The record is a 179-nucleotide RNA sequence from Bergeriella denitrificans, which matches "6S / SsrS RNA" in Rfam. Rfam classes the family as a non-coding RNA gene. For this family Rfam cites "6S RNA regulates E. coli RNA polymerase activity" (Wassarman and Storz, Cell, 2000). Rfam describes the family as follows. E. coli 6S RNA was the first non coding RNA to be sequenced, but its function was unknown until recently. It consists of 184 nucleotides that fold into an extended hairpin structure with a large single-stranded internal bulge. The 6S RNA specifically associates with RNA polymerase holoenzyme containing the sigma70 specificity factor. This interaction represses expression from a sigma70-dependent promoter during stationary phase. 6S RNA homologs have recently been identified in most bacterial genomes.
RNA sequence: UUUUCCCUGCGGUGUUUGCGAAGGCAUAUAUUCCUUUGAACCAAUAAGUUCGCUUAAGGUUGCCGGGAGCAGUAGUGGGCGCGAUUGUCUUUUACAGACGAACCCGAAACUACCCGAGGCGACCGCCUUGUCAGCAAGGUUCAAGCGGAUUCCGCCCGAACGGCACCAGCGGGGAUUCC
Numbered sequence: 001u002u003u004u005c006c007c008u009g010c011g012g013u014g015u016u017u018g019c020g021a022a023g024g025c026a027u028a029u030a031u032u033c034c035u036u037u038g039a040a041c042c043a044a045u046a047a048g049u050u051c052g053c054u055u056a057a058g059g060u061u062g063c064c065g066g067g068a069g070c071a072g073u074a075g076u077g078g079g080c081g082c083g084a085u086u087g088u089c090u091u092u093u094a095c096a097g098a099c100g101a102a103c104c105c106g107a108a109a110c111u112a113c114c115c116g117a118g119g120c121g122a123c124c125g126c127c128u129u130g131u132c133a134g135c136a137a138g139g140u141u142c143a144a145g146c147g148g149a150u151u152c153c154g155c156c157c158g159a160a161c162g163g164c165a166c167c168a169g170c171g172g173g174g175a176u177u178c179c
Stems, first nucleotide, its partner, number of pairs: 004175007012166004017162002032149003035145001037143006058124003062120003067115001069114001077104002082100002085097004